[Rfam]
RNA sequence: CUUACAGAGUUUAUUGGCAUUCUGUCCACCUCCCAAUCAUAUAUAUAAUUUUUUAAAAAAAAAAAAAAAAAAAAAAAAACCUCUCUCUAUCUUUCUAAUGGAGGAGGAGGUGGGCAUACUGCCAACUGAGCUCUGUUGG
Numbered sequence: 001c002u003u004a005c006a007g008a009g010u011u012u013a014u015u016g017g018c019a020u021u022c023u024g025u026c027c028a029c030c031u032c033c034c035a036a037u038c039a040u041a042u043a044u045a046u047a048a049u050u051u052u053u054u055a056a057a058a059a060a061a062a063a064a065a066a067a068a069a070a071a072a073a074a075a076a077a078a079a080c081c082u083c084u085c086u087c088u089a090u091c092u093u094u095c096u097a098a099u100g101g102a103g104g105a106g107g108a109g110g111u112g113g114g115c116a117u118a119c120u121g122c123c124a125a126c127u128g129a130g131c132u133c134u135g136u137u138g139g
Stems, first nucleotide, its partner, number of pairs: 011129001014125006023116011
Source information:
Shown here is a 139-nucleotide RNA sequence from Acer saccharum, a member of the family "MIR394 microRNA precursor family". For this family Rfam cites "Computational identification of plant microRNAs and their targets, including a stress-induced miRNA" (Jones-Rhoades and Bartel, Mol Cell, 2004). NCBI's taxonomy places the organism under Eukaryota, Spermatophyta, eudicotyledons, Hippocastanoideae, Acer. The base pairs follow the family's consensus structure, which was predicted with WAR. The match comes from Rfam's covariance-model search (90 bits).